This 80-nucleotide RNA sequence from Branchiostoma belcheri belongs to the Rfam family "mir-4859 microRNA precursor family".
NCBI's taxonomy places the organism under Eukaryota, Metazoa, Eumetazoa, Branchiostomatidae, Branchiostoma.
Pairs were carried over by alignment from the consensus structure, which was predicted with RNAalifold.
Nucleotides: 080
Base pairs, nucleotide, nucleotide: 002079003078004077005076006075007074008073009072010071011070014067015066016065017064018063020061021060022059023058024057025056026055028053029052030051031050032049033046034045035044
Number, partner (000 for none) and nucleotide at each position: 001000g002079c003078c004077u005076g006075u007074u008073g009072g010071a011070a012000a013000g014067c015066a016065g017064c018063g019000a020061g021060c022059a023058u024057u025056a026055c027000g028053g029052u030051c031050a032049u033046u034045c035044u036000g037000a038000c039000g040000c041000u042000g043000g044035a045034g046033a047000a048000u049032a050031u051030g052029a053028c054000a055026g056025u057024a058023a059022u060021g061020c062000c063018c064017g065016c066015u067014g068000a069000c070011u071010u072009c073008u074007a075006a076005u077004g078003g079002g080000g